Rfam assigns this 211-nucleotide RNA sequence from Clostridiales bacterium CHKCI006 to the family "T-box leader". By type it is a cis-regulatory leader. On this family, see Gerdeman et al., J Mol Biol 2003: "Solution structure of the Bacillus subtilis T-box antiterminator RNA: seven nucleotide bulge characterized by stacking and flexibility".
RNA sequence: UAAAACUCAAGGAAUAAGAGAGUAGUUAUCGACCAAGUCAAAGCGAGCUGAUGAGGGUGAGAGAUCAGUACAGCGGUAGAUAAUGAAGCGCACUUAGGAGAGGGAUAUUUGAACUCAAGUAGAAUAUCCGGUGAGCUAGCCUUAAUAGCGAGAGUGGAUGCAGGUCAACUGACAUCAACUGGAGUGGUAACGCGGAUUAUUCGUCUCCUGG
Numbered sequence: 001u002a003a004a005a006c007u008c009a010a011g012g013a014a015u016a017a018g019a020g021a022g023u024a025g026u027u028a029u030c031g032a033c034c035a036a037g038u039c040a041a042a043g044c045g046a047g048c049u050g051a052u053g054a055g056g057g058u059g060a061g062a063g064a065u066c067a068g069u070a071c072a073g074c075g076g077u078a079g080a081u082a083a084u085g086a087a088g089c090g091c092a093c094u095u096a097g098g099a100g101a102g103g104g105a106u107a108u109u110u111g112a113a114c115u116c117a118a119g120u121a122g123a124a125u126a127u128c129c130g131g132u133g134a135g136c137u138a139g140c141c142u143u144a145a146u147a148g149c150g151a152g153a154g155u156g157g158a159u160g161c162a163g164g165u166c167a168a169c170u171g172a173c174a175u176c177a178a179c180u181g182g183a184g185u186g187g188u189a190a191c192g193c194g195g196a197u198u199a200u201u202c203g204u205c206u207c208c209u210g211g
Stems, first nucleotide, its partner, number of pairs: 007101002015096004025084006037071002047069006104128007130141003157176004161171003181208004192204005
Notes: A search with the family's covariance model found it, with a score of 119 bits.